Flavo-1 RNA: a 79-nucleotide sequence from Algibacter luteus. Taxonomically the source falls in Algibacter (Bacteria, Pseudomonadati, Flavobacteriia, Flavobacteriaceae). The match comes from Rfam's covariance-model search (56 bits).
RNA sequence: GUUUUGCCCGCGUUAGGGAUAGUAGCGGCAUCCUUUUUUGAAGCAUGAAAAAAAGAUAUAGCGAAUAGCCCGACCCGAC
Number, nucleotide and partner (000 for none) at each position: 001g000002u000003u000004u000005u000006g000007c000008c000009c000010g000011c000012g000013u000014u000015a000016g071017g070018g069019a000020u067021a066022g000023u000024a000025g062026c061027g000028g000029c000030a057031u056032c055033c000034u000035u000036u052037u051038u050039u049040g000041a000042a000043g000044c000045a000046u000047g000048a000049a039050a038051a037052a036053a000054a000055g032056a031057u030058a000059u000060a000061g026062c025063g000064a000065a000066u021067a020068g000069c018070c017071c016072g000073a000074c000075c000076c000077g000078a000079c000